[Rfam]
Nucleotides: 123
Stems, first nucleotide, its partner, number of pairs: 032059001034057003040051004069116006082101003088098003
Number, partner (000 for none) and nucleotide at each position: 001000a002000u003000u004000u005000a006000a007000a008000a009000u010000a011000a012000u013000a014000u015000g016000u017000g018000g019000u020000u021000a022000a023000u024000u025000g026000g027000a028000c029000u030000u031000g032059u033000a034057u035056c036055u037000u038000u039000a040051u041050u042049g043048g044000u045000c046000a047000u048043u049042c050041a051040a052000a053000u054000a055036g056035g057034g058000c059032a060000a061000a062000a063000g064000a065000a066000a067000u068000a069116u070115c071114c072113u073112u074111u075000u076000a077000a078000a079000a080000c081000u082101c083100a084099g085000g086000c087000a088098a089097a090096c091000u092000g093000a094000g095000u096090g097089u098088u099084c100083u101082g102000u103000a104000a105000c106000c107000u108000g109000u110000c111074a112073g113072a114071g115070g116069a117000a118000a119000c120000a121000a122000a123000u
A member of the RNA family "Small nucleolar RNA SNORA27" from Castor canadensis, 123 nucleotides long. Its Rfam clan is "SNORA27 clan". The family has 24 seed sequences and 819 matches in Rfam 15.1. Its family is annotated with RNA processing and nucleolus in the Gene Ontology. ACA27 is a member of the H/ACA class of snoRNA that guide the sites of modification of uridines to pseudouridines. The pairing is the family consensus, mapped onto this sequence. It scores 96 bits against the family's covariance model.